[Rfam]
RNA sequence: UGGUACAAGUAGAGGCAUCCCGCUUCUCACCUGAAUGACGCGUUUUGCAGUUACCAGGUAACUUUCAUGAUAAUUAAGCGAUGUGCUUUAUAAUCAGAUGCGGGUGUUUCGACACUCGCAUCUUUUUUGUUUC
Dot-bracket structure: ..........((((((.....)))))).(((.....(((((.....)).)))....))).......................................(((((((((....))))))))).............
A member of the RNA family "Ribosomal protein L20 leader" from Rossellomorea marisflavi, 133 nucleotides long. Pairs were carried over by alignment from the consensus structure, which was predicted with CMfinder. For this family Rfam cites "Diverse mechanisms for regulating ribosomal protein synthesis in Escherichia coli" (Zengel and Lindahl, Prog Nucleic Acid Res Mol Biol, 1994). Lineage of the source: Bacteria > Bacillota > Caryophanales > Bacillaceae > Rossellomorea.